Rfam assigns this 90-nucleotide RNA sequence from Betta splendens to the family "mir-731 microRNA precursor family".

RNA sequence: AGGUGUUCAUCUUCAAUGACACGUUUUCUCCCGGAUUGCUGACAGCAGUAAAUGCAACCGGGAAUUUCGUGUCAGCCAUGAAAAACACUC
Numbered sequence: 001a002g003g004u005g006u007u008c009a010u011c012u013u014c015a016a017u018g019a020c021a022c023g024u025u026u027u028c029u030c031c032c033g034g035a036u037u038g039c040u041g042a043c044a045g046c047a048g049u050a051a052a053u054g055c056a057a058c059c060g061g062g063a064a065u066u067u068c069g070u071g072u073c074a075g076c077c078a079u080g081a082a083a084a085a086c087a088c089u090c
Stems, first nucleotide, its partner, number of pairs: 002089006010081002017074007029063006036057004042053001
A search with the family's covariance model found it, with a score of 78 bits. The family's consensus secondary structure was predicted with RNAalifold.